[Rfam]
The record is a 99-nucleotide RNA sequence, which matches "PhotoRC-II RNA" in Rfam. Rfam classes the family as a cis-regulatory element.
RNA sequence: UAACCCUGCGUAAAACUGCUUUAACCGAGACCUAUGAGCAGUAUAAGCAAUAGUCUCUCAUAUCCGAAAGUGAAGGGAUUUUCGGAAAUAAGUUUCGCA
Numbered sequence: 001u002a003a004c005c006c007u008g009c010g011u012a013a014a015a016c017u018g019c020u021u022u023a024a025c026c027g028a029g030a031c032c033u034a035u036g037a038g039c040a041g042u043a044u045a046a047g048c049a050a051u052a053g054u055c056u057c058u059c060a061u062a063u064c065c066g067a068a069a070g071u072g073a074a075g076g077g078a079u080u081u082u083c084g085g086a087a088a089u090a091a092g093u094u095u096c097g098c099a
Stems, first nucleotide, its partner, number of pairs: 016041006027057005064085007
The sequence is in the family's curated seed alignment.